[Rfam]
RNA sequence: GGAAGUGGACGGAGCACUGGUGGCUCCCCCGGAUUUCAAAUCCGGUGUAACGGGUUAAUAGCUCGUUAGGUGGGUUCGAUUCCCAUGCACUUCC
Numbered sequence: 001g002g003a004a005g006u007g008g009a010c011g012g013a014g015c016a017c018u019g020g021u022g023g024c025u026c027c028c029c030c031g032g033a034u035u036u037c038a039a040a041u042c043c044g045g046u047g048u049a050a051c052g053g054g055u056u057a058a059u060a061g062c063u064c065g066u067u068a069g070g071u072g073g074g075u076u077c078g079a080u081u082c083c084c085a086u087g088c089a090c091u092u093c094c
Stems, first nucleotide, its partner, number of pairs: 001094007009086001011027005017022001029045005048068005071085004
This 94-nucleotide sequence from Desulfotalea psychrophila belongs to the Rfam family "Selenocysteine transfer RNA". Gene Ontology term of the family: triplet codon-amino acid adaptor activity. Lineage of the source: Bacteria > Pseudomonadati > Desulfobulbia > Desulfotalea > Desulfotalea psychrophila.